Shown here is a 137-nucleotide RNA sequence from Mesocricetus auratus, a member of the family "Small nucleolar RNA SNORA71".
The members of this family belong to the H/ACA class of snoRNAs which bind a number of proteins (including dyskerin, Gar1p and Nop10p) to form snoRNP complexes.
A reference for the family is Ganot et al. (1997), "The family of box ACA small nucleolar RNAs is defined by an evolutionarily conserved secondary structure and ubiquitous sequence elements essential for RNA accumulation", Genes Dev.
It scores 61 bits against the family's covariance model.
By type it is an H/ACA-box small nucleolar RNA.
Its family is annotated with RNA processing and nucleolus in the Gene Ontology.
NCBI's taxonomy places the organism under Eukaryota, Chordata, Gnathostomata, Euteleostomi, Mesocricetus.
Pairs were carried over by alignment from the consensus structure, which was predicted with PFOLD.

RNA sequence: CCCUGAUUUAAAAAGUGACUGUGUGGUGCCUAUGCCAUGGUCAUUGAUACUAUAGGGAGAGGAUGCUAAAUACCUCUCCCUGUGUUUGGAAGGCCAGCUCCUUCCAGUCCUUGCUAAACCCUGGUGUACUGAAUACA
Numbered sequence: 001c002c003c004u005g006a007u008u009u010a011a012a013a014a015g016u017g018a019c020u021g022u023g024u025g026g027u028g029c030c031u032a033u034g035c036c037a038u039g040g041u042c043a044u045u046g047a048u049a050c051u052a053u054a055g056g057g058a059g060a061g062g063a064u065g066c067u068a069a070a071u072a073c074c075u076c077u078c079c080c081u082g083u084g085u086u087u088g089g090a091a092g093g094c095c096a097g098c099u100c101c102u103u104c105c106a107g108u109c110c111u112u113g114c115u116a117a118a119c120c121c122u123g124g125u126g127u128a129c130u131g132a133a134u135a136c137a
Stems, first nucleotide, its partner, number of pairs: 001057005009049001014045008025035001065134001067132001069130001071128003084119005090112004